[Rfam]
RNA: THF (Tetrahydrofolate) riboswitch aptamer
RNA sequence: GUUGGGGUAGGAAAAUAUGAGUUAUUGUCCGGUGGAGCGGAAUGUGGAAACCGGAAGGAAGCUGCGGCUGCUUGUAUUUUCCGCAUUCACCACC
Numbered sequence: 001g002u003u004g005g006g007g008u009a010g011g012a013a014a015a016u017a018u019g020a021g022u023u024a025u026u027g028u029c030c031g032g033u034g035g036a037g038c039g040g041a042a043u044g045u046g047g048a049a050a051c052c053g054g055a056a057g058g059a060a061g062c063u064g065c066g067g068c069u070g071c072u073u074g075u076a077u078u079u080u081c082c083g084c085a086u087u088c089a090c091c092a093c094c
Stems, first nucleotide, its partner, number of pairs: 001094001003092003010082010021071002025057002028055006040088005060069003